RNA sequence: CAAUGGCCGCUGCGAUGAUGUGCGACGGAGUCCGUGGCGGUCUAGGUAGUUUUUCAGACGUCCAUCGCACCGUACGGGAAACCUGUACGGCCCGAACACGGGAGAGAACGCUGAGCGUUACAAC
Numbered sequence: 001c002a003a004u005g006g007c008c009g010c011u012g013c014g015a016u017g018a019u020g021u022g023c024g025a026c027g028g029a030g031u032c033c034g035u036g037g038c039g040g041u042c043u044a045g046g047u048a049g050u051u052u053u054u055c056a057g058a059c060g061u062c063c064a065u066c067g068c069a070c071c072g073u074a075c076g077g078g079a080a081a082c083c084u085g086u087a088c089g090g091c092c093c094g095a096a097c098a099c100g101g102g103a104g105a106g107a108a109c110g111c112u113g114a115g116c117g118u119u120a121c122a123a124c
Stems, first nucleotide, its partner, number of pairs: 001046001005042008070090009

The record is a 124-nucleotide sequence from Corynebacterium canis, which matches "atpB RNA" in Rfam.